[Rfam]
RNA sequence: GAUUCUCAACAAUCGUCUACCUCCCCGUGGUGAGAAUCGGGAAACAUUUCAAAUAAUGGCUAAAGACGAU
Dot-bracket structure: (((((((...........(((.......))))))))))......((((......))))............
Numbered sequence: 001g002a003u004u005c006u007c008a009a010c011a012a013u014c015g016u017c018u019a020c021c022u023c024c025c026c027g028u029g030g031u032g033a034g035a036a037u038c039g040g041g042a043a044a045c046a047u048u049u050c051a052a053a054u055a056a057u058g059g060c061u062a063a064a065g066a067c068g069a070u
Stems, first nucleotide, its partner, number of pairs: 001038007019031003045058004
The family of this 70-nucleotide sequence from Cyphomyrmex costatus is "HDV ribozyme from F. prausnitzii". The literature on the family includes a 2009 paper in Science by Webb et al., "Widespread occurrence of self-cleaving ribozymes". The source organism's lineage runs through Eukaryota, Panarthropoda, Arthropoda, Pancrustacea and Cyphomyrmex.